[Rfam]
The family of this 80-nucleotide sequence from Synechococcus sp. LTW-R is "Cyanobacterial ribosomal protein S1 leader". By type it is a cis-regulatory leader. The organism belongs to Synechococcus, within Bacteria. On this family, see Weinberg et al., Nucleic Acids Res 2007: "Identification of 22 candidate structured RNAs in bacteria using the CMfinder comparative genomics pipeline". Pairs were carried over by alignment from the consensus structure, which is taken from published work.
RNA sequence: ACCUCUAUAGUUUUAGAUUCCUCUGCGACGGUGGCGGCCGACGCAUUGGUUCCUUCGCGCUGCCUUGGGCAGUCCGCCAA
Numbered sequence: 001a002c003c004u005c006u007a008u009a010g011u012u013u014u015a016g017a018u019u020c021c022u023c024u025g026c027g028a029c030g031g032u033g034g035c036g037g038c039c040g041a042c043g044c045a046u047u048g049g050u051u052c053c054u055u056c057g058c059g060c061u062g063c064c065u066u067g068g069g070c071a072g073u074c075c076g077c078c079a080a
Stems, first nucleotide, its partner, number of pairs: 024045004029040003033078005060072005